[Rfam]
Nucleotides: 037
Base pairs, nucleotide, nucleotide: 005026006025007024008023009022010021011020012019013018
Number, partner (000 for none) and nucleotide at each position: 001000g002000a003000a004000g005026c006025g007024c008023c009022c010021g011020u012019c013018c014000g015000c016000a017000a018013g019012g020011g021010c022009g023008g024007g025006c026005g027000a028000g029000g030000a031000u032000u033000g034000a035000a036000a037000c